[Rfam]
RNA sequence: UAGUGUUACAGUUCUUUUAGAAUUUGUCUAGCAGGCUUUCUGGUUUUUGCCCAAAAGACUCU
Numbered sequence: 001u002a003g004u005g006u007u008a009c010a011g012u013u014c015u016u017u018u019a020g021a022a023u024u025u026g027u028c029u030a031g032c033a034g035g036c037u038u039u040c041u042g043g044u045u046u047u048u049g050c051c052c053a054a055a056a057g058a059c060u061c062u
Stems, first nucleotide, its partner, number of pairs: 034059001036057004042051003
This 62-nucleotide RNA sequence from Chlorocebus sabaeus belongs to the Rfam family "U7 small nuclear RNA". The family's consensus secondary structure was predicted with PFOLD. About the family: Animal histone pre-mRNAs are spliced by a different mechanism than nuclear pre-mRNAs and self-splicing introns. This processing involves the U7 snRNP, which contains only one RNA species: U7. The 5' end of U7 RNA is thought to base-pair to a conserved spacer element downstream of the cleavage site in histone pre-mRNA. This family contains a number of annotated U7 pseudogenes. A search with the family's covariance model found it, with a score of 53 bits.